[Rfam]
RNA sequence: GGCUAGCACAGGCUAAAAUCGUGUGCGUUGGACCUGACUCUAUGGAGGACAGGGAUGCAAGACUCUGCGCUGUACAGAGCACUCAACUACUAUCCUUAACAGGACGAAGAUCGCAAAUGGCCGCGGUUUAGUUGUUU
Numbered sequence: 001g002g003c004u005a006g007c008a009c010a011g012g013c014u015a016a017a018a019u020c021g022u023g024u025g026c027g028u029u030g031g032a033c034c035u036g037a038c039u040c041u042a043u044g045g046a047g048g049a050c051a052g053g054g055a056u057g058c059a060a061g062a063c064u065c066u067g068c069g070c071u072g073u074a075c076a077g078a079g080c081a082c083u084c085a086a087c088u089a090c091u092a093u094c095c096u097u098a099a100c101a102g103g104a105c106g107a108a109g110a111u112c113g114c115a116a117a118u119g120g121c122c123g124c125g126g127u128u129u130a131g132u133u134g135u136u137u
Stems, first nucleotide, its partner, number of pairs: 006026005034052003038047003063079004084134005094103002109128006
A member of the RNA family "Polynucleobacter-1 RNA", 137 nucleotides long. It is one of the family's seed sequences. The family's RNA type in Rfam is small RNA. Pairs were carried over by alignment from the consensus structure, which is taken from published work.